RNA sequence: UUGCCGGUUUAAGUCCGGUCCGGGUAGCUGUCCCGAGGCUCGGUAGCAGGCCGGCGGCUUGGUCUGGAAACGGGUCGGGCCGAAGCCCAGCGUCAAAAGCCCUUAUAGGGGAGCCGGUCUUCUCGACGACGUGA
Numbered sequence: 001u002u003g004c005c006g007g008u009u010u011a012a013g014u015c016c017g018g019u020c021c022g023g024g025u026a027g028c029u030g031u032c033c034c035g036a037g038g039c040u041c042g043g044u045a046g047c048a049g050g051c052c053g054g055c056g057g058c059u060u061g062g063u064c065u066g067g068a069a070a071c072g073g074g075u076c077g078g079g080c081c082g083a084a085g086c087c088c089a090g091c092g093u094c095a096a097a098a099g100c101c102c103u104u105a106u107a108g109g110g111g112a113g114c115c116g117g118u119c120u121u122c123u124c125g126a127c128g129a130c131g132u133g134a
Stems, first nucleotide, its partner, number of pairs: 020043005050091002053088002055082006064073001066071001100110002113127001115125001
RNA: Group II catalytic intron D1-D4-4